RNA sequence: UAUGCAAGUGAUGAGAAACAUAGACAGGGACAUCUGCACUCUUCAAGAGGUUGAUGACUAGUUCUAUGGUAAAUGGGAAUCUCUCUGAUGCAAU
Number, nucleotide and partner (000 for none) at each position: 001u000002a000003u092004g091005c090006a089007a000008g000009u000010g000011a000012u000013g000014a000015g000016a000017a000018a000019c000020a000021u000022a000023g000024a000025c000026a000027g000028g000029g000030a000031c000032a000033u000034c000035u000036g000037c000038a000039c000040u000041c000042u000043u000044c000045a000046a000047g000048a000049g000050g000051u000052u000053g000054a000055u000056g000057a000058c000059u000060a000061g000062u000063u000064c000065u000066a000067u000068g000069g000070u000071a000072a000073a000074u000075g000076g000077g000078a000079a000080u000081c000082u000083c000084u000085c000086u000087g000088a000089u006090g005091c004092a003093a000094u000

The family of this 94-nucleotide RNA sequence from Zingiber officinale is "Small nucleolar RNA R44/J54/Z268 family".
The organism belongs to Zingiber, within Eukaryota.
The family's consensus secondary structure was predicted with PFOLD.
The family is grouped with related families in Rfam's "SNORD74 clan".
A search with the family's covariance model found it, with a score of 66 bits.